[Rfam]
RNA: Enterobacteria rnk leader
Organism: Enterobacteriaceae bacterium RIT714
RNA sequence: CGCAUCUGCACGAUGAAUGUGACAUUCAUCACUUCAAAGUUGCCUGCGCAGCCAGUAUCAUCAGCAGAGAUAAAACCCUCGCUGCCAGACGGCGAGGGUUUUCUUUUGGA
Numbered sequence: 001c002g003c004a005u006c007u008g009c010a011c012g013a014u015g016a017a018u019g020u021g022a023c024a025u026u027c028a029u030c031a032c033u034u035c036a037a038a039g040u041u042g043c044c045u046g047c048g049c050a051g052c053c054a055g056u057a058u059c060a061u062c063a064g065c066a067g068a069g070a071u072a073a074a075a076c077c078c079u080c081g082c083u084g085c086c087a088g089a090c091g092g093c094g095a096g097g098g099u100u101u102u103c104u105u106u107u108g109g110a
Stems, first nucleotide, its partner, number of pairs: 015035003019032004073101012